TPP riboswitch aptamer (THI element): a 109-nucleotide RNA sequence from Peptoclostridium acidaminophilum.
RNA sequence: AAAAGAAGCUGGGGGAGCCUGUAGCGACAGGCUGAGAGUGCGAUGUUAUUGCUUACCCCUAUGACCUGAUUUGGUUAAUGCCAACGUAGGGAUGUUUCUGCUGAAUUUU
Numbered sequence: 001a002a003a004a005g006a007a008g009c010u011g012g013g014g015g016a017g018c019c020u021g022u023a024g025c026g027a028c029a030g031g032c033u034g035a036g037a038g039u040g041c042g043a044u045g046u047u048a049u050u051g052c053u054u055a056c057c058c059c060u061a062u063g064a065c066c067u068g069a070u071u072u073g074g075u076u077a078a079u080g081c082c083a084a085c086g087u088a089g090g091g092a093u094g095u096u097u098c099u100g101c102u103g104a105a106u107u108u109u
Base pairs, nucleotide, nucleotide: 006097007096008095009094011059012058013057014056016053017032018031019030020029021028040052041051042050043049065090066089067088068087071084072083073082074081

The match comes from Rfam's covariance-model search (75 bits).